[Rfam]
Background:
Rfam assigns this 85-nucleotide RNA sequence from Caenorhabditis latens to the family "mir-76 microRNA precursor family". The family has 3 seed sequences and 6 matches in Rfam 15.1. The organism belongs to Caenorhabditis, within Eukaryota. Rfam links the family to the GO terms miRNA-mediated post-transcriptional gene silencing and RISC complex.
RNA sequence: UCCGCCUUUUAGGACUUCACAACCAGCGAAUACCUCCACACACGACUAUUGGAUAUUCGUUGUUGAUGAAGUCUUAAUGGGUGUC
Number, nucleotide and partner (000 for none) at each position: 001u000002c000003c083004g082005c081006c080007u079008u000009u077010u076011a075012g074013g073014a072015c071016u070017u069018c068019a067020c065021a064022a063023c062024c000025a060026g000027c059028g058029a057030a056031u055032a054033c052034c051035u000036c000037c000038a000039c000040a000041c000042a000043c000044g000045a000046c000047u000048a000049u000050u000051g034052g033053a000054u032055a031056u030057u029058c028059g027060u025061u000062g023063u022064u021065g020066a000067u019068g018069a017070a016071g015072u014073c013074u012075u011076a010077a009078u000079g007080g006081g005082u004083g003084u000085c000